[Rfam]
RNA sequence: GGCUUAAUUACUCAUUUAGUCCCUUAACUUAUUUUUUGGUUUUGUUUUGGUCCCUUAACUAUUAAAAGUUUCGUUUUGGUCCCUUAACUCUAAUACAUUCAUCUAACAUAAAGGACCAAAGUGGUUGACGGAGGAAGAGUUAAGGGACCAAAAUGAAACCAAAAAAUAAGUUAAGGGACCAAAACGAAACUUUUAAUAGUUAAGGGACCAAAACGAAACCAAAAAGUAAGUUAAGGGACCAAAACGAAACUUUUAAUAGUUAAGGGA
Numbered sequence: 001g002g003c004u005u006a007a008u009u010a011c012u013c014a015u016u017u018a019g020u021c022c023c024u025u026a027a028c029u030u031a032u033u034u035u036u037u038g039g040u041u042u043u044g045u046u047u048u049g050g051u052c053c054c055u056u057a058a059c060u061a062u063u064a065a066a067a068g069u070u071u072c073g074u075u076u077u078g079g080u081c082c083c084u085u086a087a088c089u090c091u092a093a094u095a096c097a098u099u100c101a102u103c104u105a106a107c108a109u110a111a112a113g114g115a116c117c118a119a120a121g122u123g124g125u126u127g128a129c130g131g132a133g134g135a136a137g138a139g140u141u142a143a144g145g146g147a148c149c150a151a152a153a154u155g156a157a158a159c160c161a162a163a164a165a166a167u168a169a170g171u172u173a174a175g176g177g178a179c180c181a182a183a184a185c186g187a188a189a190c191u192u193u194u195a196a197u198a199g200u201u202a203a204g205g206g207a208c209c210a211a212a213a214c215g216a217a218a219c220c221a222a223a224a225a226g227u228a229a230g231u232u233a234a235g236g237g238a239c240c241a242a243a244a245c246g247a248a249a250c251u252u253u254u255a256a257u258a259g260u261u262a263a264g265g266g267a
Stems, first nucleotide, its partner, number of pairs: 015244003019239002022236013036222014
Dot-bracket structure: ..............(((.((.(((((((((((((.((((((((((((((...............................................................................................................................................................)))))))))))))).))))))))))))).))..))).......................
RNA: MIR2655 microRNA precursor family